[Rfam]
Source information: Rfam assigns this 567-nucleotide part of an RNA from Porphyromonas endodontalis to the family "Bacterial small subunit ribosomal RNA". Pairs were carried over by alignment from the consensus structure, which is taken from published work. A reference for the family is Yusupov et al. (2001), "Crystal structure of the ribosome at 5.5 A resolution", Science. Rfam links the family to the GO terms ribosome and structural constituent of ribosome.
RNA sequence: ACAAUGGAGAGUUUGAUCCUGGCUCAGGAUGAACGCUAGCGAUAGGCUUAACACAUGCAAGUCGAGGGGCAGCAUUAUUUUAGCUUGCUAAGAUAGAUGGCGACCGGCGCACGGGUGCGUAACGCGUAUGCAACCUGCCUGUAAUUAGGGAAUAACCCGGUGAAAGUCGGACUAAUACCCUAUAUUCUUCUUUCUCCGCAUGGAGGAGGACGGAAAGAUUUAUUGAUUACAGAUGGGCAUGCGUCCCAUUAGCUGGUUGGUAAGGUAACGGCUUACCAAGGCAACGAUGGGUAGGGGGACUGAGAGGUUGACCCCCCACACUGGUACUGAGACACGGACCAGACUCCUACGGGAGGCAGCAGUGAGGAAUAUUGGUCAAUGGGCGAGAGCCUGAACCAGCCAAGUCGCGUGAAGGACGACGGUUCUAUGGAUUGUAAACUUCUUUUGUAGAGGAAUAAUGGCAGCUACGUGUAGCUGAGAUGCAUGUACUCUACGAAUAAGUAUCGGCUAACUCCGUGCCAGCAGCCGCGGUAAUACGGAGGAUACGAGCGUUAUCCGGAAUUAUUG
Number, nucleotide and partner (000 for none) at each position: 001a000002c000003a000004a000005u000006g000007g000008a000009g025010a024011g023012u022013u021014u000015g000016a000017u000018c000019c000020u000021g013022g012023c011024u010025c009026a000027g557028g556029a555030u554031g000032a553033a552034c551035g550036c549037u548038a000039g408040c407041g406042a405043u404044a000045g401046g400047c366048u000049u000050a000051a000052c364053a363054c362055a000056u361057g360058c359059a000060a000061g108062u107063c106064g000065a000066g105067g104068g000069g101070c100071a000072g000073c000074a000075u000076u000077a094078u093079u092080u091081u090082a089083g088084c000085u000086u000087g000088c083089u082090a081091a080092g079093a078094u077095a000096g000097a000098u000099g000100g070101c069102g000103a000104c067105c066106g063107g062108c061109g000110c000111a000112c000113g000114g000115g319116u318117g317118c000119g000120u000121a000122a000123c000124g244125c243126g242127u241128a240129u239130g238131c237132a000133a000134c236135c235136u000137g000138c000139c232140u231141g230142u229143a228144a227145u226146u000147a181148g180149g179150g178151a000152a000153u000154a000155a000156c000157c170158c169159g168160g167161u166162g000163a000164a000165a000166g161167u160168c159169g158170g157171a000172c000173u000174a000175a000176u000177a000178c150179c149180c148181u147182a000183u000184a000185u000186u000187c212188u000189u210190c209191u208192u207193u206194c000195u204196c203197c202198g000199c000200a000201u000202g197203g196204a195205g000206g193207a192208g191209g190210a189211c000212g187213g000214a000215a000216a000217g224218a223219u000220u000221u000222a000223u218224u217225g000226a145227u144228u143229a142230c141231a140232g139233a000234u000235g135236g134237g131238c130239a129240u128241g127242c126243g125244u124245c291246c290247c289248a000249u000250u000251a000252g282253c281254u280255g000256g000257u279258u278259g277260g276261u275262a274263a273264g272265g000266u000267a000268a000269c000270g000271g000272c264273u263274u262275a261276c260277c259278a258279a257280g254281g253282c252283a000284a000285c000286g000287a000288u000289g247290g246291g245292u000293a000294g316295g315296g314297g313298g309299a308300c307301u306302g000303a000304g000305a000306g301307g300308u299309u298310g000311a000312c000313c297314c296315c295316c294317c117318a116319c115320a000321c342322u341323g340324g339325u338326a000327c000328u000329g000330a000331g000332a000333c000334a000335c000336g000337g000338a325339c324340c323341a322342g321343a000344c355345u354346c353347c352348u000349a000350c000351g000352g347353g346354a345355g344356g000357c000358a000359g058360c057361a056362g054363u053364g052365a000366g047367g000368a000369a000370u000371a000372u398373u000374g397375g396376u395377c000378a000379a000380u393381g392382g391383g390384c389385g000386a000387g000388a000389g384390c383391c382392u381393g380394a000395a376396c375397c374398a372399g000400c046401c045402a000403a000404g043405u042406c041407g040408c039409g000410u000411g442412a441413a440414g439415g000416a000417c000418g000419a000420c000421g433422g432423u431424u430425c000426u000427a000428u000429g000430g424431a423432u422433u421434g000435u000436a000437a000438a000439c414440u413441u412442c411443u000444u000445u000446u000447g494448u493449a492450g491451a490452g489453g000454a000455a000456u484457a000458a000459u000460g000461g000462c477463a476464g475465c000466u000467a000468c000469g000470u000471g000472u000473a000474g000475c464476u463477g462478a000479g000480a000481u000482g000483c000484a456485u000486g000487u000488a000489c452490u451491c450492u449493a448494c447495g000496a000497a000498u000499a000500a000501g546502u545503a544504u543505c542506g000507g000508c000509u000510a000511a000512c541513u540514c539515c538516g537517u000518g000519c000520c000521a000522g529523c528524a000525g000526c000527c000528g523529c522530g000531g000532u000533a000534a000535u000536a000537c516538g515539g514540a513541g512542g505543a504544u503545a502546c501547g000548a037549g036550c035551g034552u033553u032554a030555u029556c028557c027558g000559g000560a000561a000562u000563u000564a000565u000566u000567g000